A member of the RNA family "Small nucleolar RNA snR161" from Naumovozyma castellii, 183 nucleotides long. Gene Ontology terms of the family: nucleolus and RNA processing. Pairs were carried over by alignment from the consensus structure, which was predicted with WAR.
RNA sequence: CUAGCUAAAAUAAACCAGUCUAUUUGGCUGUCCAGAGGUCUACCAUGUUUGGACAGUCUCUCUAAUCUGGGAAAUCAGAGCUUCACCGUGCACGUUUGCGUGCAAUUGAUGAAGGUUGAACAACUUAAGUUCCGCUGUGGUACUACAGAGACGUAACAUAGCUCUAUUGUUGUUUGUACAUUU
Number, nucleotide and partner (000 for none) at each position: 001c000002u000003a000004g000005c000006u000007a000008a000009a000010a000011u000012a000013a000014a000015c070016c069017a068018g067019u000020c000021u000022a000023u000024u000025u000026g000027g057028c056029u055030g054031u053032c052033c051034a050035g049036a048037g000038g000039u000040c000041u000042a000043c000044c000045a000046u000047g000048u036049u035050u034051g033052g032053a031054c030055a029056g028057u027058c000059u000060c000061u000062c000063u000064a000065a000066u000067c018068u017069g016070g015071g000072a000073a000074a000075u000076c000077a000078g000079a000080g000081c000082u000083u000084c000085a000086c000087c000088g000089u000090g000091c000092a000093c000094g000095u000096u000097u000098g000099c000100g000101u000102g000103c000104a000105a000106u000107u000108g000109a000110u000111g000112a000113a000114g000115g000116u000117u176118g175119a174120a173121c172122a000123a170124c169125u000126u000127a000128a000129g000130u000131u000132c000133c000134g162135c161136u160137g159138u158139g157140g000141u155142a154143c153144u000145a000146c000147a000148g000149a000150g000151a000152c000153g143154u142155a141156a000157c139158a138159u137160a136161g135162c134163u000164c000165u000166a000167u000168u000169g124170u123171u000172g121173u120174u119175u118176g117177u000178a000179c000180a000181u000182u000183u000